[Rfam]
The record is an 82-nucleotide sequence from Eptatretus burgeri, which matches "mir-218 microRNA precursor family" in Rfam.
Pairs were carried over by alignment from the consensus structure, which was predicted with RNAalifold.
Taxonomically the source falls in Eptatretus (Eukaryota, Eumetazoa, Chordata, Myxiniformes).
Gene Ontology terms of the family: miRNA-mediated post-transcriptional gene silencing and RISC complex.
RNA sequence: UGGCUUGCCCUUGUGCUUGAUCUAACCAUGCGAUGGCGAGGUAUAGGAACACCGUGGUUCUGUCAAGCACCGCGGCAGGCUG
Numbered sequence: 001u002g003g004c005u006u007g008c009c010c011u012u013g014u015g016c017u018u019g020a021u022c023u024a025a026c027c028a029u030g031c032g033a034u035g036g037c038g039a040g041g042u043a044u045a046g047g048a049a050c051a052c053c054g055u056g057g058u059u060c061u062g063u064c065a066a067g068c069a070c071c072g073c074g075g076c077a078g079g080c081u082g
Stems, first nucleotide, its partner, number of pairs: 001082009013070007024059007
Dot-bracket structure: (((((((((...(((((((....(((((((......................)))))))....)))))))...)))))))))